[Rfam]
RNA sequence: AAACCGGCCCUUUUCAGGGCCACCACUUCCUCUCAAAAGAGCUAUGU
Numbered sequence: 001a002a003a004c005c006g007g008c009c010c011u012u013u014u015c016a017g018g019g020c021c022a023c024c025a026c027u028u029c030c031u032c033u034c035a036a037a038a039g040a041g042c043u044a045u046g047u
Stems, first nucleotide, its partner, number of pairs: 006021006